[Rfam]
RNA sequence: GUGCCAGCGUAGCUCAGUGGUUACUUCUGAAUGUUCUCAGUUCCAAUCUCUGUCUGUGGACUGAGAAGUUCAAACCCACAGGCUCUGUCUAGUGUUCUU
Number, nucleotide and partner (000 for none) at each position: 001g000002u094003g093004c092005c000006a090007g089008c000009g000010u000011a000012g083013c082014u081015c000016a000017g079018u078019g077020g076021u000022u000023a000024c000025u065026u064027c063028u000029g061030a000031a000032u000033g000034u000035u000036c000037u000038c000039a000040g000041u000042u000043c000044c000045a000046a000047u000048c000049u000050c000051u000052g000053u000054c000055u000056g000057u000058g000059g000060a000061c029062u000063g027064a026065g025066a000067a000068g000069u000070u000071c000072a000073a000074a000075c000076c020077c019078a018079c017080a000081g014082g013083c012084u000085c000086u000087g000088u000089c007090u006091a000092g004093u003094g002095u000096u000097c000098u000099u000
RNA: Vault RNA